Lysine riboswitch aptamer: a 176-nucleotide RNA sequence from Oceanobacillus sp. J11TS1.

RNA sequence: CGGUGAGGUAGAGGCGCAGAUUAUAUGAGUACCUUGCAGGAGGAUGACAACAAUGAUUGCUGGGGGAAGGAUGGUUUGCCGAAGUAUAUAGAGAGGUCAUGCUUUAUAUUACUGGCAUAUUACUAAAAAGGUAAUAUGCUGUCAUGUAAUUCGUUACAUGGAGAACUACUGAUCGA
Numbered sequence: 001c002g003g004u005g006a007g008g009u010a011g012a013g014g015c016g017c018a019g020a021u022u023a024u025a026u027g028a029g030u031a032c033c034u035u036g037c038a039g040g041a042g043g044a045u046g047a048c049a050a051c052a053a054u055g056a057u058u059g060c061u062g063g064g065g066g067a068a069g070g071a072u073g074g075u076u077u078g079c080c081g082a083a084g085u086a087u088a089u090a091g092a093g094a095g096g097u098c099a100u101g102c103u104u105u106a107u108a109u110u111a112c113u114g115g116c117a118u119a120u121u122a123c124u125a126a127a128a129a130g131g132u133a134a135u136a137u138g139c140u141g142u143c144a145u146g147u148a149a150u151u152c153g154u155u156a157c158a159u160g161g162a163g164a165a166c167u168a169c170u171g172a173u174c175g176a
Stems, first nucleotide, its partner, number of pairs: 007170005016079009032064003036060004083113003086109008114140011142161007